[Rfam]
Small nucleolar RNA SNORD74: an 82-nucleotide RNA sequence from Labrus bergylta. On this family, see Galardi et al., Mol Cell Biol 2002: "Purified box C/D snoRNPs are able to reproduce site-specific 2'-O-methylation of target RNA in vitro". The organism belongs to Labrus, within Eukaryota. Its family is annotated with nucleolus and RNA processing in the Gene Ontology.
RNA sequence: CCCAUGACUGUAUGAUGAAUUAAAUGUUGGUAGGGACAUCUGAAUUUAUGUGAGGAAACGCCAACAUCUCUGACCGCAUGGG
Numbered sequence: 001c002c003c004a005u006g007a008c009u010g011u012a013u014g015a016u017g018a019a020u021u022a023a024a025u026g027u028u029g030g031u032a033g034g035g036a037c038a039u040c041u042g043a044a045u046u047u048a049u050g051u052g053a054g055g056a057a058a059c060g061c062c063a064a065c066a067u068c069u070c071u072g073a074c075c076g077c078a079u080g081g082g
Stems, first nucleotide, its partner, number of pairs: 001082005